Shown here is an 82-nucleotide sequence from Liparis tanakae, a member of the family "mir-363 microRNA precursor family".
The family is grouped with related families in Rfam's "mir-19 clan".
[Rfam]
RNA sequence: GCUGUUUUCAGAUGGAUGACUUCACAAUUUCAAUGCUAGACAAAAUUAAAAGAAAUUGCACAGUAUCCAUCUGCAAGCCGCC
Number, nucleotide and partner (000 for none) at each position: 001g000002c000003u000004g000005u000006u000007u000008u000009c073010a072011g071012a070013u069014g068015g067016a066017u065018g000019a064020c063021u000022u000023c000024a000025c058026a057027a056028u055029u054030u053031c052032a000033a000034u000035g000036c000037u000038a000039g000040a000041c000042a000043a000044a000045a000046u000047u000048a000049a000050a000051a000052g031053a030054a029055a028056u027057u026058g025059c000060a000061c000062a000063g020064u019065a017066u016067c015068c014069a013070u012071c011072u010073g009074c000075a000076a000077g000078c000079c000080g000081c000082c000